RNA sequence: GGGUUUUCACGCGACUGGCGCAGUCAAGGUGGAUCACCACCGGGGAGCGAACGACAGUCCGGACACCGCGCGCCUGGGUGGACGGG
Number, nucleotide and partner (000 for none) at each position: 001g000002g000003g055004u054005u053006u000007u051008c000009a000010c049011g048012c047013g000014a000015c044016u043017g074018g073019c072020g071021c070022a000023g000024u000025c000026a000027a000028g000029g040030u039031g038032g037033a000034u000035c000036a000037c032038c031039a030040c029041c000042g000043g016044g015045g000046a000047g012048c011049g010050a000051a007052c000053g005054a004055c003056a000057g000058u000059c000060c000061g000062g000063a000064c080065a079066c078067c077068g000069c000070g021071c020072g019073c018074c017075u000076g000077g067078g066079u065080g064081g000082a000083c000084g000085g000086g000
Shown here is an 86-nucleotide RNA from Actinomadura meyerae, a member of the family "ZMP/ZTP riboswitch aptamer (pfl RNA motif)". The match comes from Rfam's covariance-model search (49 bits).